[Rfam]
RNA sequence: CGAGUCGGCCGGGCGGUCGCGUCGGGCCUCCCCCUCCGGGGGUGGUCCGCCGAGGAAAGUCCGGACUCCACAGGGCAGGGUGGUGGGUAACGCCCACCCGGGGUGACCCGCGGGACAGUGCCACAGAGAACAGACCGCCGGUGCCGCGCGAGCGGUGCCGGUGAGGGUGAAACGGUGGUGUAAGAGACCACCAGCGCACCGGGUGACCGGUGCGGCUCGGUAAACCCCACCCGGAGCAAGGUCAGACAGGCAGCGUUCGAGGGCGGCCCGCCCGAGCUGCCGGGUAGACCGCUGGAGGCGUGCGGCAACGCACGUCCUAGAGGGAUGACCGCCGCCCGGCCCGACCCGCGAGGGGACGGCCGGGGCACAGGAUCCGGCUUACAGGCCGGCUCGUCCA
Numbered sequence: 001c002g003a004g005u006c007g008g009c010c011g012g013g014c015g016g017u018c019g020c021g022u023c024g025g026g027c028c029u030c031c032c033c034c035u036c037c038g039g040g041g042g043u044g045g046u047c048c049g050c051c052g053a054g055g056a057a058a059g060u061c062c063g064g065a066c067u068c069c070a071c072a073g074g075g076c077a078g079g080g081u082g083g084u085g086g087g088u089a090a091c092g093c094c095c096a097c098c099c100g101g102g103g104u105g106a107c108c109c110g111c112g113g114g115a116c117a118g119u120g121c122c123a124c125a126g127a128g129a130a131c132a133g134a135c136c137g138c139c140g141g142u143g144c145c146g147c148g149c150g151a152g153c154g155g156u157g158c159c160g161g162u163g164a165g166g167g168u169g170a171a172a173c174g175g176u177g178g179u180g181u182a183a184g185a186g187a188c189c190a191c192c193a194g195c196g197c198a199c200c201g202g203g204u205g206a207c208c209g210g211u212g213c214g215g216c217u218c219g220g221u222a223a224a225c226c227c228c229a230c231c232c233g234g235a236g237c238a239a240g241g242u243c244a245g246a247c248a249g250g251c252a253g254c255g256u257u258c259g260a261g262g263g264c265g266g267c268c269c270g271c272c273c274g275a276g277c278u279g280c281c282g283g284g285u286a287g288a289c290c291g292c293u294g295g296a297g298g299c300g301u302g303c304g305g306c307a308a309c310g311c312a313c314g315u316c317c318u319a320g321a322g323g324g325a326u327g328a329c330c331g332c333c334g335c336c337c338g339g340c341c342c343g344a345c346c347c348g349c350g351a352g353g354g355g356a357c358g359g360c361c362g363g364g365g366c367a368c369a370g371g372a373u374c375c376g377g378c379u380u381a382c383a384g385g386c387c388g389g390c391u392c393g394u395c396c397a
Stems, first nucleotide, its partner, number of pairs: 001393010011382001012333007020052002023049006057380003061377005066236004073269004078232005083097005098112001099110004113227002118225002120221003135166002137162011174192006194216001195214008240290004249281006261273004297316008
The record is a 397-nucleotide sequence from Kineococcus xinjiangensis, which matches "Bacterial RNase P class A" in Rfam. The match comes from Rfam's covariance-model search (283 bits). Rfam links the family to the GO terms dimeric ribonuclease P complex, ribonuclease P activity and tRNA processing. Taxonomically the source falls in Kineococcus (Bacteria, Bacillati, Actinomycetota, Kineosporiales).